[Rfam]
RNA sequence: GUGCUCGGGUUUCUUCAUCACGCACAAAUCUUUCGCUUUUACUAAAGAUUUCCGUGGAGAGGAACACUCCUGAGUUUGUGCUAUUUUUUGGAUGCUCUUCUGUCCACCGGACG
Numbered sequence: 001g002u003g004c005u006c007g008g009g010u011u012u013c014u015u016c017a018u019c020a021c022g023c024a025c026a027a028a029u030c031u032u033u034c035g036c037u038u039u040u041a042c043u044a045a046a047g048a049u050u051u052c053c054g055u056g057g058a059g060a061g062g063a064a065c066a067c068u069c070c071u072g073a074g075u076u077u078g079u080g081c082u083a084u085u086u087u088u089u090g091g092a093u094g095c096u097c098u099u100c101u102g103u104c105c106a107c108c109g110g111a112c113g
Stems, first nucleotide, its partner, number of pairs: 003075004009065004013059005026051008097113001099111003
RNA: U5 spliceosomal RNA